[Rfam]
RNA sequence: GGUUCAUUGGCUUUUAUCAGUAAACCCAUCAGAAGCUGAUAAAAACACAUGAUAUCUGAAAGGCUUCAUUAACGUAUCUUCUCGCAGUGCUUGUCACCGAGGGGGUACGUUUUUCU
Numbered sequence: 001g002g003u004u005c006a007u008u009g010g011c012u013u014u015u016a017u018c019a020g021u022a023a024a025c026c027c028a029u030c031a032g033a034a035g036c037u038g039a040u041a042a043a044a045a046c047a048c049a050u051g052a053u054a055u056c057u058g059a060a061a062g063g064c065u066u067c068a069u070u071a072a073c074g075u076a077u078c079u080u081c082u083c084g085c086a087g088u089g090c091u092u093g094u095c096a097c098c099g100a101g102g103g104g105g106u107a108c109g110u111u112u113u114u115c116u
Stems, first nucleotide, its partner, number of pairs: 002056001004052004010046001012044010071111014087097003
The family of this 116-nucleotide RNA from Alkalibacterium sp. 20 is "23S methyl RNA motif". A search with the family's covariance model found it, with a score of 51 bits. The literature on the family includes a 2007 paper in Nucleic Acids Res by Weinberg et al., "Identification of 22 candidate structured RNAs in bacteria using the CMfinder comparative genomics pipeline". Rfam classes the family as a cis-regulatory element.